The family of this 88-nucleotide sequence from Echinops telfairi is "Small nucleolar RNA SNORD11". Taxonomically the source falls in Echinops (Eukaryota, Opisthokonta, Vertebrata, Dipnotetrapodomorpha). It is annotated as a C/D-box small nucleolar RNA. The sequence is in the family's curated seed alignment. Its family is annotated with nucleolus and RNA processing in the Gene Ontology.
RNA sequence: GUGUUCAGUGAUGAAUUUUAUUUGCUUGGUUGCCUGACUUCCUUUGGGAUCAUGGAGGCAUCUUUAGUCACUACCUCUUCUGAGACAC
Dot-bracket structure: ((((................................................................................))))
Numbered sequence: 001g002u003g004u005u006c007a008g009u010g011a012u013g014a015a016u017u018u019u020a021u022u023u024g025c026u027u028g029g030u031u032g033c034c035u036g037a038c039u040u041c042c043u044u045u046g047g048g049a050u051c052a053u054g055g056a057g058g059c060a061u062c063u064u065u066a067g068u069c070a071c072u073a074c075c076u077c078u079u080c081u082g083a084g085a086c087a088c
Stems, first nucleotide, its partner, number of pairs: 001088004